[Rfam]
RNA sequence: GUCGCUAGACGGCUAGCGUCAUUCCCAUACGAUCCCUGGGGACGACCCCA
Numbered sequence: 001g002u003c004g005c006u007a008g009a010c011g012g013c014u015a016g017c018g019u020c021a022u023u024c025c026c027a028u029a030c031g032a033u034c035c036c037u038g039g040g041g042a043c044g045a046c047c048c049c050a
Stems, first nucleotide, its partner, number of pairs: 001020001003018006037050005